Shown here is a 107-nucleotide RNA sequence from Cocos nucifera, a member of the family "Plastid-psbA-1 3UTR RNA". A reference for the family is Richter et al. (2023), "Retrograde signaling in plants: A critical review focusing on the GUN pathway and beyond", Plant Commun. Lineage of the source: Eukaryota > Petrosaviidae > Arecales > Arecaceae > Cocos. Pairs were carried over by alignment from the consensus structure, which was predicted with LocARNA.
[Rfam]
RNA sequence: UUGAAGUUCCAUCUACAAAUGGAUAAGACUUUUGUCUUAGCAUAUAUGAAUUGUUGAAGGAAUGGAGCAAUACCCAAUAUCUUGUUUUAGUUGGGUAUUGCUCCAUU
Numbered sequence: 001u002u003g004a005a006g007u008u009c010c011a012u013c014u015a016c017a018a019a020u021g022g023a024u025a026a027g028a029c030u031u032u033u034g035u036c037u038u039a040g041c042a043u044a045u046a047u048g049a050a051u052u053g054u055u056g057a058a059g060g061a062a063u064g065g066a067g068c069a070a071u072a073c074c075c076a077a078u079a080u081c082u083u084g085u086u087u088u089a090g091u092u093g094g095g096u097a098u099u100g101c102u103c104c105a106u107u
Stems, first nucleotide, its partner, number of pairs: 008023005061107013075093003081090001083089001